[Rfam]
RNA: Group II catalytic intron D1-D4-7
Organism: Polaromonas sp. JS666
RNA sequence: CCACCCCUGGAACGGGGUGACCUUCACCACACGUGCGUCCUGAGUAAUCGGGGGGUGCGGAGCUGUGGUUAAACGUCCCGUGCCCCGGCACACAGGUCAUGCGCGAGCUUGGCCGACUCACAGAGCAAGACUGUGCGGAGACG
Numbered sequence: 001c002c003a004c005c006c007c008u009g010g011a012a013c014g015g016g017g018u019g020a021c022c023u024u025c026a027c028c029a030c031a032c033g034u035g036c037g038u039c040c041u042g043a044g045u046a047a048u049c050g051g052g053g054g055g056u057g058c059g060g061a062g063c064u065g066u067g068g069u070u071a072a073a074c075g076u077c078c079c080g081u082g083c084c085c086c087g088g089c090a091c092a093c094a095g096g097u098c099a100u101g102c103g104c105g106a107g108c109u110u111g112g113c114c115g116a117c118u119c120a121c122a123g124a125g126c127a128a129g130a131c132u133g134u135g136c137g138g139a140g141a142c143g
Stems, first nucleotide, its partner, number of pairs: 002019006027068005032059005038053006080093003095113001101108002119135005